[Rfam]
RNA: Small nucleolar RNA Z199
RNA sequence: GGUCAAUUGAUGAGGAAAAGAAAACUGCAACAAGAUGAUGGAUUUAAUCCAUGAUUACUUGUAUUUAAGUCUCUGAUGAUC
Numbered sequence: 001g002g003u004c005a006a007u008u009g010a011u012g013a014g015g016a017a018a019a020g021a022a023a024a025c026u027g028c029a030a031c032a033a034g035a036u037g038a039u040g041g042a043u044u045u046a047a048u049c050c051a052u053g054a055u056u057a058c059u060u061g062u063a064u065u066u067a068a069g070u071c072u073c074u075g076a077u078g079a080u081c
Stems, first nucleotide, its partner, number of pairs: 001080001003079003040050004